A member of the RNA family "Plastid-psbN 5UTR RNA" from Gossypium laxum, 48 nucleotides long.
It scores 53 bits against the family's covariance model.
Rfam describes the family as follows. Plastid psbN is a non-coding RNA (ncRNA) recognised in plastids. It was reported as a conserved 11 stem-loop in the prime untranslated region (5UTR) of psbN genes. It has been reported that the motif is retained in a subset of mature transcripts in barley, which can suggests a possible role in transcript alternative 5 prime processing.
Rfam classes the family as a cis-regulatory element.
The base pairs follow the family's consensus structure, which was predicted with LocARNA.

[Rfam]
RNA sequence: UGCGACACCCAUCAAAGGAGUCGUUCCCCAUCCAGGGGCUACCUUACC
Numbered sequence: 001u002g003c004g005a006c007a008c009c010c011a012u013c014a015a016a017g018g019a020g021u022c023g024u025u026c027c028c029c030a031u032c033c034a035g036g037g038g039c040u041a042c043c044u045u046a047c048c
Base pairs, nucleotide, nucleotide: 017045018044020042021041023039024038025037026036027035